Bacterial large subunit ribosomal RNA: a 234-nucleotide part of an RNA from an uncultured bacterium.
For this family Rfam cites "Crystal structure of the ribosome at 5.5 A resolution" (Yusupov et al., Science, 2001).

RNA sequence: GAGUUACUGUCUAUCGCAAGUUUAACCCCGGUGGUACGGGGGCAGGCGUAGGGAAACCGAGUCCGAAUAGGGCGUUUAGCGGUAGGUAGUAGACUCGAAGCCAGUCGAUCUACCCAUGGCCAGGGUGAAGUCUCGCGAAAGCGAGAUGGAGGCCCGAACCCGUGACCGUUGAAAAGGUUUGGGAUGAGCUAUGGGUCGGAGUGAAAGGCUAAUCAAGGCUGGUGAUAGCUAGUU
Number, nucleotide and partner (000 for none) at each position: 001g000002a000003g000004u000005u091006a090007c089008u088009g087010u086011c085012u084013a083014u082015c081016g080017c079018a000019a000020g047021u046022u045023u044024a000025a000026c041027c040028c039029c038030g037031g000032u000033g000034g000035u000036a000037c030038g029039g028040g027041g026042g000043c000044a023045g022046g021047c020048g000049u000050a000051g058052g057053g000054a000055a000056a000057c052058c051059g000060a000061g073062u072063c071064c070065g000066a000067a000068u000069a000070g064071g063072g062073c061074g000075u000076u000077u000078a000079g017080c016081g015082g014083u013084a012085g011086g010087u009088a008089g007090u006091a005092g000093a000094c232095u231096c000097g229098a000099a000100g000101c222102c221103a220104g219105u218106c217107g000108a000109u000110c198111u000112a196113c195114c194115c193116a192117u191118g190119g189120c188121c186122a000123g155124g154125g153126u152127g000128a000129a000130g147131u146132c145133u144134c143135g142136c141137g000138a000139a000140a000141g136142c135143g134144a133145g132146a131147u130148g000149g000150a000151g000152g126153c125154c124155c123156g000157a000158a000159c183160c182161c181162g000163u000164g179165a178166c177167c176168g000169u000170u000171g000172a000173a000174a000175a000176g167177g166178u165179u164180u000181g161182g160183g159184a000185u000186g121187a000188g120189c119190u118191a117192u116193g115194g114195g113196u112197c000198g110199g000200a210201g209202u208203g000204a000205a000206a000207g000208g202209c201210u200211a000212a000213u000214c000215a000216a000217g106218g105219c104220u103221g102222g101223u000224g000225a000226u000227a000228g000229c097230u000231a095232g094233u000234u000